RNA sequence: UGCAGAUGAUGCUAACCUUGCUGUCUGAAUCCACUCGAUGACACACCACCAAGAUCGCUGAUGCA
Numbered sequence: 001u002g003c004a005g006a007u008g009a010u011g012c013u014a015a016c017c018u019u020g021c022u023g024u025c026u027g028a029a030u031c032c033a034c035u036c037g038a039u040g041a042c043a044c045a046c047c048a049c050c051a052a053g054a055u056c057g058c059u060g061a062u063g064c065a
Stems, first nucleotide, its partner, number of pairs: 001065004

Overview:
The family of this 65-nucleotide RNA from Eurypyga helias is "Small nucleolar RNA SNORD24". The source organism's lineage runs through Eukaryota, Amniota, Sauropsida, Archelosauria and Eurypyga. Rfam classes the family as a C/D-box small nucleolar RNA. A search with the family's covariance model found it, with a score of 48 bits. Gene Ontology terms of the family: nucleolus and RNA processing.